[Rfam]
RNA sequence: GACGGGGUGCUCGCAAUCUUUCUCCAUUAGGAUUCUUACCCUUUCCUAAUCUGAUCGUGAGCACCUUAAA
Numbered sequence: 001g002a003c004g005g006g007g008u009g010c011u012c013g014c015a016a017u018c019u020u021u022c023u024c025c026a027u028u029a030g031g032a033u034u035c036u037u038a039c040c041c042u043u044u045c046c047u048a049a050u051c052u053g054a055u056c057g058u059g060a061g062c063a064c065c066u067u068a069a070a
Stems, first nucleotide, its partner, number of pairs: 006065009018053001028048005
Shown here is a 70-nucleotide RNA sequence, a member of the family "potC RNA". The base pairs follow the family's consensus structure, which is taken from published work. Rfam classes the family as a cis-regulatory element.